[Rfam]
RNA sequence: GAAUGAUAUGAUGAUUAGAUUAAUUUCCCUAUUGGUUUGAUCGCCGGUAUGAUGGCACAUCAUGUAUUAGCUCUAUCUGAUCAUUC
Numbered sequence: 001g002a003a004u005g006a007u008a009u010g011a012u013g014a015u016u017a018g019a020u021u022a023a024u025u026u027c028c029c030u031a032u033u034g035g036u037u038u039g040a041u042c043g044c045c046g047g048u049a050u051g052a053u054g055g056c057a058c059a060u061c062a063u064g065u066a067u068u069a070g071c072u073c074u075a076u077c078u079g080a081u082c083a084u085u086c
Base pairs, nucleotide, nucleotide: 002085003084004083005082039058043056044055045054